[Rfam]
RNA sequence: GAUAGCCGUAGAUGACCGCAGGAUCGAGGGUGGGUUGAGUCACGACGCGAACCUCCUGUAGGUUGGCAUCGUAAAGUCCCCCAAAAUACAUCGCUUUCGCCGCCAGCAGUAAUGCACCCGCACCGAGAAACAGGAGAUGAUGACCUAAAAUCAUGCCCAACUGUUUUGGAUUUUCCCA
Numbered sequence: 001g002a003u004a005g006c007c008g009u010a011g012a013u014g015a016c017c018g019c020a021g022g023a024u025c026g027a028g029g030g031u032g033g034g035u036u037g038a039g040u041c042a043c044g045a046c047g048c049g050a051a052c053c054u055c056c057u058g059u060a061g062g063u064u065g066g067c068a069u070c071g072u073a074a075a076g077u078c079c080c081c082c083a084a085a086a087u088a089c090a091u092c093g094c095u096u097u098c099g100c101c102g103c104c105a106g107c108a109g110u111a112a113u114g115c116a117c118c119c120g121c122a123c124c125g126a127g128a129a130a131c132a133g134g135a136g137a138u139g140a141u142g143a144c145c146u147a148a149a150a151u152c153a154u155g156c157c158c159a160a161c162u163g164u165u166u167u168g169g170a171u172u173u174u175c176c177c178a
Stems, first nucleotide, its partner, number of pairs: 136175002139172003144169002147166002
Shown here is a 178-nucleotide RNA sequence from Lusitaniella coriacea, a member of the family "Antisense RNA which regulates isiA expression". The base pairs follow the family's consensus structure, which was predicted with PFOLD. Lineage of the source: Bacteria > Bacillati > Lusitaniellaceae > Lusitaniella > Lusitaniella coriacea.